RNA: U11 spliceosomal RNA
RNA sequence: AAAAAGGGCAUCUGCUAUGUUUGGCACAGCGGGGACAGAUAUUCUGCCACUGUUGCGGAAUCGCUAUCAAGAGAUUUCGGAUGCACAAUUUUUAUAAAUCGGGGCUGCUGGUGAUCUUUGGUCUUAGCGUCCCA
Numbered sequence: 001a002a003a004a005a006g007g008g009c010a011u012c013u014g015c016u017a018u019g020u021u022u023g024g025c026a027c028a029g030c031g032g033g034g035a036c037a038g039a040u041a042u043u044c045u046g047c048c049a050c051u052g053u054u055g056c057g058g059a060a061u062c063g064c065u066a067u068c069a070a071g072a073g074a075u076u077u078c079g080g081a082u083g084c085a086c087a088a089u090u091u092u093u094a095u096a097a098a099u100c101g102g103g104g105c106u107g108c109u110g111g112u113g114a115u116c117u118u119u120g121g122u123c124u125u126a127g128c129g130u131c132c133c134a
Base pairs, nucleotide, nucleotide: 008084009083010082011081012080013026014025015024016023017022027055028054029053030052031051032050034048036046037045038044056079057078058077059076060075061074062073102132103131104130105129107128108127109126110125111124113123114122115121116120